[Rfam]
RNA sequence: UAUUAAGUUUUCUAGGGUUCCGCAGCUUAUAGCUGGCUGGUCCGAGAGAAAACGCACAGUAUAAAUACUGUGUUCACGGAAGGAUAAAAGCCUGAGAGAU
Numbered sequence: 001u002a003u004u005a006a007g008u009u010u011u012c013u014a015g016g017g018u019u020c021c022g023c024a025g026c027u028u029a030u031a032g033c034u035g036g037c038u039g040g041u042c043c044g045a046g047a048g049a050a051a052a053c054g055c056a057c058a059g060u061a062u063a064a065a066u067a068c069u070g071u072g073u074u075c076a077c078g079g080a081a082g083g084a085u086a087a088a089a090g091c092c093u094g095a096g097a098g099a100u
Base pairs, nucleotide, nucleotide: 007053008052009051010050011049012048015043016042020040021039022037023035024034025033026032027031054073055072056071057070058069059068060067061066077098081093082092083091